A member of the RNA family "L17-Actino-Proteobacteria ribosomal protein leader" from Phaeacidiphilus oryzae, 48 nucleotides long. It is one of the family's seed sequences. The organism belongs to Phaeacidiphilus oryzae, within Bacteria. For this family Rfam cites "Discovery of 20 novel ribosomal leader candidates in bacteria and archaea" (Eckert and Weinberg, BMC Microbiol, 2020).
RNA sequence: GCGUGCGCCGUACGCCCUGGCCCCGGUACCUGAUACGGCCGGGGGCAG
Numbered sequence: 001g002c003g004u005g006c007g008c009c010g011u012a013c014g015c016c017c018u019g020g021c022c023c024c025g026g027u028a029c030c031u032g033a034u035a036c037g038g039c040c041g042g043g044g045g046c047a048g
Stems, first nucleotide, its partner, number of pairs: 001015006017048003021044007